[Rfam]
RNA sequence: AGUUGCAAACUUGAGGCUAUAGCAGAAGUGGUCGCAGUGCAGCCUGUCGGAUUUCAACAAAUCUGCAAAUUCUGCC
Numbered sequence: 001a002g003u004u005g006c007a008a009a010c011u012u013g014a015g016g017c018u019a020u021a022g023c024a025g026a027a028g029u030g031g032u033c034g035c036a037g038u039g040c041a042g043c044c045u046g047u048c049g050g051a052u053u054u055c056a057a058c059a060a061a062u063c064u065g066c067a068a069a070u071u072c073u074g075c076c
Base pairs, nucleotide, nucleotide: 015044016043017042018041022075023074024073025072026071027070028040029039030038048065049064050063051062052061053060054059
Shown here is a 76-nucleotide RNA from Alligator mississippiensis, a member of the family "Mammalian CPEB3 ribozyme". A reference for the family is Salehi-Ashtiani et al. (2006), "A genomewide search for ribozymes reveals an HDV-like sequence in the human CPEB3 gene", Science. Pairs were carried over by alignment from the consensus structure, which is taken from published work. Rfam 15.1 lists 5,706 matches to the family in 197 species. From the family's description: The mammalian CPEB3 ribozyme is a self cleaving RNA located in the second intron of the CPEB3 gene which belongs to a family of genes regulating messenger RNA polyadenylation. This ribozyme is highly conserved and found only in mammals. The CPEB3 ribozyme is structurally and biochemically related to the human hepatitis delta virus (HDV) ribozyme and the HDV ribozyme is proposed to have arisen from the human transcriptome. Taxonomically the source falls in Alligator (Eukaryota, Opisthokonta, Eumetazoa, Archosauria).